This 122-nucleotide RNA from Pelotomaculum propionicicum belongs to the Rfam family "Molybdenum/Tungsten riboswitch aptamer (Moco RNA motif)". It scores 62 bits against the family's covariance model. The organism belongs to Pelotomaculum, within Bacteria. For this family Rfam cites "in molybdenum cofactor and tungsten cofactor metabolism" (Regulski et al., Mol Microbiol, 2008).
[Rfam]
RNA sequence: AAACAAAAAGUUCUCCGAGCCGGGCUAAACCUUAGCCGCCAGGGUAUGGUUUUCCGGCCGUUAGGGUGUGACGGGAAACUGCCAUGCCUCCCAUUGCGGAAAGGAGAAGAAAAGUUUUGCUG
Numbered sequence: 001a002a003a004c005a006a007a008a009a010g011u012u013c014u015c016c017g018a019g020c021c022g023g024g025c026u027a028a029a030c031c032u033u034a035g036c037c038g039c040c041a042g043g044g045u046a047u048g049g050u051u052u053u054c055c056g057g058c059c060g061u062u063a064g065g066g067u068g069u070g071a072c073g074g075g076a077a078a079c080u081g082c083c084a085u086g087c088c089u090c091c092c093a094u095u096g097c098g099g100a101a102a103g104g105a106g107a108a109g110a111a112a113a114g115u116u117u118u119g120c121u122g
Stems, first nucleotide, its partner, number of pairs: 003116001011108006019058006027052005035045003064089007072081003090099002
Dot-bracket structure: ..(.......((((((..((((((..(((((...(((.....)))..))))))))))).....(((((((.(((....))).)))))))((......))...)))))).......)......